[Rfam]
RNA sequence: GCCUGGGUUGGAUUUAUGGCAAGCCCAUCCUCCUGGGUCUCUCACAGCGCCCCAUGUCAGAGGAGACUGCAGCCUUAAACCAUUACCUGGCCUCUUGCCCAUAGGCUGCAGGCACUGAAGUGGGUUACUCGGGG
Number, nucleotide and partner (000 for none) at each position: 001g057002c056003c000004u054005g052006g051007g050008u049009u000010g000011g000012a000013u000014u047015u046016a000017u044018g043019g042020c000021a040022a000023g038024c036025c035026c000027a000028u000029c000030c000031u000032c000033c000034u000035g025036g024037g000038u023039c000040u021041c000042u019043c018044a017045c000046a015047g014048c000049g008050c007051c006052c005053c000054a004055u000056g002057u001058c000059a000060g000061a000062g000063g000064a000065g000066a000067c000068u000069g000070c000071a126072g125073c124074c123075u122076u000077a000078a000079a000080c000081c117082a116083u000084u000085a000086c112087c111088u108089g107090g106091c105092c104093u103094c000095u000096u000097g000098c000099c000100c000101a000102u000103a093104g092105g091106c090107u089108g088109c000110a000111g087112g086113c000114a000115c000116u082117g081118a000119a000120g000121u000122g075123g074124g073125u072126u071127a000128c000129u000130c000131g000132g000133g000134g000
The record is a 134-nucleotide RNA from Phyllostomus discolor, which matches "Small nucleolar RNA SNORA42/SNORA80 family" in Rfam. Gene Ontology terms of the family: RNA processing and nucleolus. For this family Rfam cites "A computational screen for mammalian pseudouridylation guide H/ACA RNAs" (Schattner et al., RNA, 2006). Rfam's curators write: The members of this family belong to the H/ACA class of snoRNAs that guide the sites of modification of uridines to pseudouridines. Human ACA42 (SNORA42) was cloned from HeLa cells by immunoprecipitation with anti-GAR1 antibody. Its is predicted to guide the pseudouridylation of residues U109 and U572 of 18S rRNA. ACA42 shares the same host gene with ACA26, ACA46, ACA50. Pairs were carried over by alignment from the consensus structure, which was predicted with RNAalifold.